Nucleotides: 312
Stems, first nucleotide, its partner, number of pairs: 001311007010063004014032006037059005069302006077294004081289001089282002094278003099270005106263003111258001113256001118254007125244008133235004137230001139228001140179001142177008151168007183225006192219005201210003
Number, partner (000 for none) and nucleotide at each position: 001311g002310a003309u004308g005307g006306a007305c008000u009000a010063g011062g012061u013060c014032g015031g016030g017029g018028g019027g020000c021000u022000a023000g024000g025000c026000c027019c028018c029017c030016c031015u032014c033000c034000u035000u036000g037059c038058c039057c040056g041055c042000a043000c044000u045000g046000u047000g048000g049000u050000c051000u052000u053000g054000a055041g056040c057039g058038g059037g060013g061012a062011c063010c064000g065000a066000a067000c068000a069302c070301c071300g072299g073298g074297g075000g076000c077294g078293u079292c080291c081289g082000g083000u084000c085000u086000g087000a088000c089282g090281g091000a092000c093000g094278u095277g096276g097000a098000c099270c100269c101268c102267g103266u104000g105000a106263g107262c108261u109000a110000a111258c112000g113256u114000g115000g116000a117000a118254g119253c120252c121251u122250c123249g124248u125244c126243c127242c128241a129240c130239g131238g132237g133235g134234a135233c136232g137230g138000c139228g140179g141000u142177c143176c144175g145174c146173g147172u148171g149170g150000u151168c152167g153166c154165a155164c156163c157162u158000g159000c160000a161000g162157g163156g164155g165154u166153g167152c168151g169000c170149c171148c172147a173146c174145g175144u176143g177142g178000u179140u180000a181000a182000a183225c184224g185223a186222u187221g188220g189000c190000a191000c192219u193218c194217c195216g196215c197000c198000a199000g200000g201210c202209a203208c204000g205000g206000a207000a208203g209202u210201g211000a212000g213000c214000a215196g216195c217194g218193g219192a220188c221187c222186a223185u224184c225183g226000a227000a228139c229000a230137c231000c232136c233135g234134u235133c236000g237132c238131u239130c240129g241128u242127g243126g244125g245000g246000u247000c248124g249123c250122g251121g252120g253119g254118u255000g256113g257000a258111g259000g260000a261108g262107g263106c264000a265000a266103a267102c268101g269100g270099g271000a272000u273000u274000a275000c276096c277095c278094g279000c280000g281090u282089c283000c284000g285000a286000a287000c288000g289081c290000c291080g292079g293078g294077c295000c296000a297074u298073c299072c300071u301070g302069g303000c304000u305007g306006u307005c308004c309003g310002u311001u312000c